[Rfam]
c-di-GMP-I riboswitch aptamer: an 89-nucleotide RNA from Massilia sp. KIM. It scores 73 bits against the family's covariance model. About the family: GEMM was predicted in a large-scale screen for bacterial structured RNA regulatory elements. Taxonomically the source falls in Massilia (Bacteria, Pseudomonadati, Pseudomonadota, Betaproteobacteria).
RNA sequence: AUCUGAAAAGGGCAAACUCCGCGAAAGCGGAGGACGCAAAGUCAACGGUCUAAUGAGCCUUCGGGCUCGAUGACGGCAGGACUGCCAGA
Dot-bracket structure: ...........((...((((((....))))))...))..((((...((((....((((......))))...)))..)..))))......